[Rfam]
RNA sequence: AAAAAUAUACGGCAAACCUAUCGAAAGGUAGAGACGCAAAGCCACGGGUCUAAAGAUAGUAGUUCAUACUAUCACGAUAGCCGGGUUGCAGAA
Numbered sequence: 001a002a003a004a005a006u007a008u009a010c011g012g013c014a015a016a017c018c019u020a021u022c023g024a025a026a027g028g029u030a031g032a033g034a035c036g037c038a039a040a041g042c043c044a045c046g047g048g049u050c051u052a053a054a055g056a057u058a059g060u061a062g063u064u065c066a067u068a069c070u071a072u073c074a075c076g077a078u079a080g081c082c083g084g085g086u087u088g089c090a091g092a093a
Stems, first nucleotide, its partner, number of pairs: 012037002018031005040087004045083003048078003055073007
A member of the RNA family "c-di-GMP-I riboswitch aptamer" from Desulfosporosinus fructosivorans, 93 nucleotides long. The match comes from Rfam's covariance-model search (73 bits).